[Rfam]
This 131-nucleotide sequence from Brevundimonas sp. Root1279 belongs to the Rfam family "Caulobacter sRNA CrfA". It is annotated as a small RNA. A search with the family's covariance model found it, with a score of 51 bits. The pairing is the family consensus, mapped onto this sequence. NCBI's taxonomy places the organism under Bacteria, Pseudomonadota, Alphaproteobacteria, Caulobacterales, Brevundimonas.
RNA sequence: ACUCGGAAGACGCGGCGUUCUGACGCAGCGGCCUUUCGGAGGCGUUUCGGGGAGGAAACGUCCGCUCCGUAGAGAGCGAAAGAAAGCCCGCCGCGAUGUAUCCCCCGCGGCGGGCUUUUUCGUGCCCGGAC
Numbered sequence: 001a002c003u004c005g006g007a008a009g010a011c012g013c014g015g016c017g018u019u020c021u022g023a024c025g026c027a028g029c030g031g032c033c034u035u036u037c038g039g040a041g042g043c044g045u046u047u048c049g050g051g052g053a054g055g056a057a058a059c060g061u062c063c064g065c066u067c068c069g070u071a072g073a074g075a076g077c078g079a080a081a082g083a084a085a086g087c088c089c090g091c092c093g094c095g096a097u098g099u100a101u102c103c104c105c106c107g108c109g110g111c112g113g114g115c116u117u118u119u120u121c122g123u124g125c126c127c128g129g130a131c
Base pairs, nucleotide, nucleotide: 003039004038005037006036007035008034009033013030014029017024041062042061043060044059045058046057047056048055066130067129068128069127081120082119083118084117085116086115087114088113089112090111091110092109093108094107095106